The family of this 152-nucleotide RNA sequence from Acinetobacter defluvii is "Manganese Mn2+ riboswitch aptamer (yybP-ykoY)". Its family is annotated with manganese ion binding in the Gene Ontology. A reference for the family is Argaman et al. (2001), "Novel small RNA-encoding genes in the intergenic regions of Escherichia coli", Curr Biol.
RNA sequence: CCACACUUCAUUGGGGAGUAGCCGCUAUUCACAAUCGACCUGAUCUGUGAAUAGGUGAUGGUCAACAUAAUUGUUCAACAGAACAUGGUCAUCAUAGCAAAGAACCAAUUUGCUUGUUUAAAGCAUUUCUUUUGUUGGCAAGACCUUUGAUU
Numbered sequence: 001c002c003a004c005a006c007u008u009c010a011u012u013g014g015g016g017a018g019u020a021g022c023c024g025c026u027a028u029u030c031a032c033a034a035u036c037g038a039c040c041u042g043a044u045c046u047g048u049g050a051a052u053a054g055g056u057g058a059u060g061g062u063c064a065a066c067a068u069a070a071u072u073g074u075u076c077a078a079c080a081g082a083a084c085a086u087g088g089u090c091a092u093c094a095u096a097g098c099a100a101a102g103a104a105c106c107a108a109u110u111u112g113c114u115u116g117u118u119u120a121a122a123g124c125a126u127u128u129c130u131u132u133u134g135u136u137g138g139c140a141a142g143a144c145c146u147u148u149g150a151u152u
Base pairs, nucleotide, nucleotide: 026053027052028051029050030049031048032047033046055095056094057093058092059091060090061089062088063087064086072085073084074083075082076081096151098149099148100147101146102145

Source information:
NCBI's taxonomy places the organism under Bacteria, Pseudomonadati, Gammaproteobacteria, Moraxellales, Acinetobacter.